[Rfam]
RNA sequence: CCUCAGGCUUCCUGGGACACUAACAGAGCACCUGCGACCCAGGAAGAGUGCGGCGAGCUCCCUAAAGGGCUGCAGCACGCAUGGCUGGACCCAGGAGCAGCU
Numbered sequence: 001c002c003u004c005a006g007g008c009u010u011c012c013u014g015g016g017a018c019a020c021u022a023a024c025a026g027a028g029c030a031c032c033u034g035c036g037a038c039c040c041a042g043g044a045a046g047a048g049u050g051c052g053g054c055g056a057g058c059u060c061c062c063u064a065a066a067g068g069g070c071u072g073c074a075g076c077a078c079g080c081a082u083g084g085c086u087g088g089a090c091c092c093a094g095g096a097g098c099a100g101c102u
Stems, first nucleotide, its partner, number of pairs: 007098005014091002018087002020084003028078001032075004036070001038068002041063003045059002049055002
Shown here is a 102-nucleotide RNA from Nyctereutes procyonoides, a member of the family "mir-8904 microRNA precursor family". It scores 98 bits against the family's covariance model. The family's consensus secondary structure was predicted with RNAalifold. The family has 2 seed sequences and 207 matches in Rfam 15.1. Its family is annotated with RISC complex and miRNA-mediated post-transcriptional gene silencing in the Gene Ontology.